[Rfam]
Plant signal recognition particle RNA: a 305-nucleotide RNA sequence from Lathyrus oleraceus. For this family Rfam cites "Towards the structure of the mammalian signal recognition particle" (Wild et al., Curr Opin Struct Biol, 2002). Its family is annotated with signal recognition particle, endoplasmic reticulum targeting and SRP-dependent cotranslational protein targeting to membrane, signal sequence recognition in the Gene Ontology. Lineage of the source: Eukaryota > Viridiplantae > Fabales > Papilionoideae > Lathyrus.
Nucleotides: 305
Base pairs, nucleotide, nucleotide: 001040002039003038004023005022006021007020008019009018011016028037029036030035044304047301048300049299050298051297052296053295056292057291058289059288061285062284065281068279069278070277071276072275074273075272076271077270079264080263083260084259085258088256089255090254099250100249101248102247103246104245105244107239108238110237111236112235113234114233116230117229118228119227120226121225122224123223127166128165129164130163131162134161135160136159137158138157139156140155141154142153143152145150175220176219177218178217179216186211187210188209193204194203195202
Number, partner (000 for none) and nucleotide at each position: 001040g002039c003038c004023g005022a006021g007020u008019u009018g010000a011016u012000u013000a014000a015000c016011a017000a018009c019008a020007a021006c022005u023004u024000g025000u026000g027000a028037c029036c030035c031000a032000u033000g034000u035030g036029g037028g038003g039002g040001c041000a042000a043000u044304a045000u046000u047301g048300u049299g050298g051297u052296g053295g054000a055000a056292c057291a058289u059288g060000g061285c062284u063000u064000u065281g066000g067000c068279c069278c070277a071276g072275c073000g074273u075272g076271c077270u078000g079264g080263a081000c082000u083260g084259a085258g086000u087000u088256a089255u090254a091000c092000a093000c094000u095000a096000u097000g098000c099250u100249g101248g102247c103246c104245u105244g106000c107239c108238c109000g110237c111236u112235c113234c114233a115000a116230g117229u118228c119227g120226a121225g122224a123223g124000u125000u126000g127166g128165g129164c130163c131162a132000u133000g134161g135160g136159g137158g138157g139156u140155u141154u142153g143152g144000u145150c146000g147000a148000a149000g150145g151000c152143c153142c154141a155140g156139a157138u158137c159136u160135c161134u162131u163130g164129g165128u166127c167000a168000c169000u170000a171000g172000a173000a174000u175220g176219g177218a178217g179216g180000g181000a182000a183000c184000c185000g186211c187210a188209u189000g190000a191000g192000g193204c194203u195202g196000g197000c198000u199000u200000c201000a202195c203194a204193g205000a206000g207000c208000a209188g210187u211186g212000a213000a214000c215000a216179c217178c218177u219176u220175c221000u222000c223123c224122u225121c226120u227119u228118g229117a230116c231000a232000g233114u234113g235112g236111a237110g238108g239107g240000a241000u242000u243000a244105c245104a246103g247102g248101c249100u250099g251000c252000u253000g254090u255089a256088u257000u258085c259084u260083c261000u262000c263080u264079c265000a266000a267000a268000a269000u270077a271076g272075c273074a274000a275072g276071u277070u278069g279068g280000g281065c282000u283000u284062g285061g286000c287000a288059c289058a290000u291057u292056g293000a294000a295053c296052c297051a298050u299049c300048a301047c302000u303000u304044u305000u